[Rfam]
RNA: L17 ribosomal protein downstream element
RNA sequence: UGAGCGUUAUGAUGAUGGAAGGAACUAUUUUCCAAGUGUCUAGCUCAGUUUCUCCUGGGGACAUCCUCAGGAG
Numbered sequence: 001u002g003a004g005c006g007u008u009a010u011g012a013u014g015a016u017g018g019a020a021g022g023a024a025c026u027a028u029u030u031u032c033c034a035a036g037u038g039u040c041u042a043g044c045u046c047a048g049u050u051u052c053u054c055c056u057g058g059g060g061a062c063a064u065c066c067u068c069a070g071g072a073g
Stems, first nucleotide, its partner, number of pairs: 002046004011040003017033006052073009